This 295-nucleotide RNA sequence from Enterobacteriaceae bacterium strain FGI 57 belongs to the Rfam family "Soft rot Enterobacteriaceae Rev 39 5'UTR". Taxonomically the source falls in Enterobacteriaceae (Bacteria, Pseudomonadati, Pseudomonadota, Enterobacterales). From bacteria cultured under starvation conditions.

[Rfam]
RNA sequence: ACUUGUGCUGUUCUUAACGUCUGUGGUAACUCUGUAGGCAUUCCUUCGAACAAGAUGCAAGAAUAGACAAAAAUGAAAGCCCUUCUACGAGUGAUUAGCCUGGUCGUGAUUAGCGUGGUGGUGAUUAUUAUCCCACCGUGCGGGGCUGCACUUGGACGAGGAAAGGCUUAGAAAUCAAGCCUUAACGAACUAAGACCCCCGCACCGAAAGGUUCGGGGGUUUUUUUAUGACUUAAAAACAAUAGCGAGGAGCAGAUUAUGAGUUGUAGCACAAAAUCCUGUUUCUCCCGAUCUAC
Dot-bracket structure: ....(((((((..(....)...))))).))....(.(.(.(((.(((......))...).)))..).).)..........(((.(((.(.....((((.(..(.(((.....))).(((((.(((....))))))))((.((((......)))).))..(....((.((........)).))...).....((((((((((.(((....))).))))))))))..)..).).)))...)..)))..)))(((((....((........)).......))))).............